[Rfam]
RNA: Archaeal signal recognition particle RNA
RNA sequence: GGGCCGUGGGGAGGGCCCAGUUUACUGGGUCAGACAACCAUGCACCGCGUGGCUGGGGCCCUGUCAACCCCCACGUAAGGCAAUGACCCCCGCCCCAUGGGGCUUGCGGUGGCGGAGCCCUCUCCGGAGGGGGAGGGUGAACCGUCUUAACCGGGGGAACCCGGCCAGGCCCGGAAGGGAGCAACCUAACCCUGGCCGCAAGCGUUCAUGGGUCACCGGGGCAGAGACCUGCGUGGAAGGGCUCUGGCAGGGCUCUCCACGCGGUGUAUGGGGCUACGGUCC
Numbered sequence: 001g002g003g004c005c006g007u008g009g010g011g012a013g014g015g016c017c018c019a020g021u022u023u024a025c026u027g028g029g030u031c032a033g034a035c036a037a038c039c040a041u042g043c044a045c046c047g048c049g050u051g052g053c054u055g056g057g058g059c060c061c062u063g064u065c066a067a068c069c070c071c072c073a074c075g076u077a078a079g080g081c082a083a084u085g086a087c088c089c090c091c092g093c094c095c096c097a098u099g100g101g102g103c104u105u106g107c108g109g110u111g112g113c114g115g116a117g118c119c120c121u122c123u124c125c126g127g128a129g130g131g132g133g134a135g136g137g138u139g140a141a142c143c144g145u146c147u148u149a150a151c152c153g154g155g156g157g158a159a160c161c162c163g164g165c166c167a168g169g170c171c172c173g174g175a176a177g178g179g180a181g182c183a184a185c186c187u188a189a190c191c192c193u194g195g196c197c198g199c200a201a202g203c204g205u206u207c208a209u210g211g212g213u214c215a216c217c218g219g220g221g222c223a224g225a226g227a228c229c230u231g232c233g234u235g236g237a238a239g240g241g242c243u244c245u246g247g248c249a250g251g252g253c254u255c256u257c258c259a260c261g262c263g264g265u266g267u268a269u270g271g272g273g274c275u276a277c278g279g280u281c282c
Stems, first nucleotide, its partner, number of pairs: 001282009038271015055256012068241003071236007079228001081226001088221005094212008102203007109148001111146005117138009151195006163186002170179003